[Rfam]
Overview:
The family of this 67-nucleotide RNA sequence from Bacillaceae bacterium SAS-127 is "Bacillaceae-1 RNA".

RNA sequence: AGUUAAGGAACAUCUGCUAAGUUCGUCACGUCCUGUGACAACGCAGAUGCCUGCACAUCCAUGUGCA
Numbered sequence: 001a002g003u004u005a006a007g008g009a010a011c012a013u014c015u016g017c018u019a020a021g022u023u024c025g026u027c028a029c030g031u032c033c034u035g036u037g038a039c040a041a042c043g044c045a046g047a048u049g050c051c052u053g054c055a056c057a058u059c060c061a062u063g064u065g066c067a
Stems, first nucleotide, its partner, number of pairs: 011049007025039005052067005

The match comes from Rfam's covariance-model search (65 bits). It is annotated as a small RNA.